[Rfam]
Shown here is a 65-nucleotide RNA sequence from Sphingopyxis bauzanensis, a member of the family "terC RNA". The match comes from Rfam's covariance-model search (56 bits). The family has 129 seed sequences and 1,112 matches in Rfam 15.1.

RNA sequence: CAUGCGGGCCGGGCCCCUCUGGCGUCGGCAGGAUAUUUCCUGCCACGUGAUGUCGGACCGCAUCG
Numbered sequence: 001c002a003u004g005c006g007g008g009c010c011g012g013g014c015c016c017c018u019c020u021g022g023c024g025u026c027g028g029c030a031g032g033a034u035a036u037u038u039c040c041u042g043c044c045a046c047g048u049g050a051u052g053u054c055g056g057a058c059c060g061c062a063u064c065g
Stems, first nucleotide, its partner, number of pairs: 006059002009056004022048004027044007